A member of the RNA family "SraG RNA" from Duffyella gerundensis, 170 nucleotides long. On this family, see Fontaine et al., RNA 2016: "The small RNA SraG participates in PNPase homeostasis". About the family: This RNA was discovered in E. coli during a large scale screen. Evidence was found for specific cleavage of this RNA. The match comes from Rfam's covariance-model search (134 bits). Gene Ontology terms of the family: mRNA binding and sRNA-mediated gene silencing.

RNA sequence: CUUUAUUUGCAUCCUCGCGACUAAUGACAAUCUUUAACUCCGCCCGGAGUAAAGUUUCUCAUUAGCCGCGCGAACCUCUGCAAGCAAAGAUCACUCUCAGCAACAAUACAUGAGUUUGGCGUGGAUUGCUGCGCAUUGCUUAAAAAAAGGGGCCAUAAAGGCCCCCUUUU
Numbered sequence: 001c002u003u004u005a006u007u008u009g010c011a012u013c014c015u016c017g018c019g020a021c022u023a024a025u026g027a028c029a030a031u032c033u034u035u036a037a038c039u040c041c042g043c044c045c046g047g048a049g050u051a052a053a054g055u056u057u058c059u060c061a062u063u064a065g066c067c068g069c070g071c072g073a074a075c076c077u078c079u080g081c082a083a084g085c086a087a088a089g090a091u092c093a094c095u096c097u098c099a100g101c102a103a104c105a106a107u108a109c110a111u112g113a114g115u116u117u118g119g120c121g122u123g124g125a126u127u128g129c130u131g132c133g134c135a136u137u138g139c140u141u142a143a144a145a146a147a148a149g150g151g152g153c154c155a156u157a158a159a160g161g162c163c164c165c166c167u168u169u170u
Stems, first nucleotide, its partner, number of pairs: 001089004007084001009081003016072004021065007095124002149165006